A member of the RNA family "Bacteroidales-1 6S-Bacteroidales RNA suggested" from Porphyromonas sp. COT-239 OH1446, 175 nucleotides long.
The family's RNA type in Rfam is small RNA.
The base pairs follow the family's consensus structure, which is taken from published work.
From the family's description: Bacteroidales-1 was first reported in a comparative genomics-based approach of genome and metagenome sequences from Weinberg et al. 2010 In a high-resolution transcriptome map study of Bacteroides thetaiotaomicron, Ryan et al. 2020 report this sRNA as 6S RNA homologue of Bacteroides, in the study they obtain evidence of small product RNAs (pRNAs) related to 6S function.

[Rfam]
RNA sequence: AGCCACGAGAUCGAUAGGGAAACUCAUCGUUUAUAUCUCAAUUCCGAGUUCAGCCGACCUCCUAAUGGCGGGCCACACUCCCUCGGGAGAGCUUAGCUCAGUGGAUUACAAAGGGAGUUAGGCACUCAAAUCUUGUUUCUCGGAGUUUUCACUUUAUCUACUCGUGGCUUUAUAU
Numbered sequence: 001a002g003c004c005a006c007g008a009g010a011u012c013g014a015u016a017g018g019g020a021a022a023c024u025c026a027u028c029g030u031u032u033a034u035a036u037c038u039c040a041a042u043u044c045c046g047a048g049u050u051c052a053g054c055c056g057a058c059c060u061c062c063u064a065a066u067g068g069c070g071g072g073c074c075a076c077a078c079u080c081c082c083u084c085g086g087g088a089g090a091g092c093u094u095a096g097c098u099c100a101g102u103g104g105a106u107u108a109c110a111a112a113g114g115g116a117g118u119u120a121g122g123c124a125c126u127c128a129a130a131u132c133u134u135g136u137u138u139c140u141c142g143g144a145g146u147u148u149u150c151a152c153u154u155u156a157u158c159u160a161c162u163c164g165u166g167g168c169u170u171u172a173u174a175u
Base pairs, nucleotide, nucleotide: 053123054122055121057119059117060116061115062114063113066110067109073104074103075102076101079088080087081086090098091097092096